Description: A member of the RNA family "L4-Archaeoglobi ribosomal protein leades", 100 nucleotides long.
[Rfam]
RNA sequence: CUGACGGCCGCGUCCGGGUCAAUUGCGGACUGCAACACCCAAUCUCCCUCCUCCUCCCGGAUGGGAUGGAGGUGUCGGACGGAGAGCGCGUCGCCAUCAG
Numbered sequence: 001c002u003g004a005c006g007g008c009c010g011c012g013u014c015c016g017g018g019u020c021a022a023u024u025g026c027g028g029a030c031u032g033c034a035a036c037a038c039c040c041a042a043u044c045u046c047c048c049u050c051c052u053c054c055u056c057c058c059g060g061a062u063g064g065g066a067u068g069g070a071g072g073u074g075u076c077g078g079a080c081g082g083a084g085a086g087c088g089c090g091u092c093g094c095c096a097u098c099a100g
Stems, first nucleotide, its partner, number of pairs: 001100004009090005016040003023035005043085005049079003
It is one of the family's seed sequences. The base pairs follow the family's consensus structure, which is taken from published work. The literature on the family includes a 2020 paper in BMC Microbiol by Eckert and Weinberg, "Discovery of 20 novel ribosomal leader candidates in bacteria and archaea".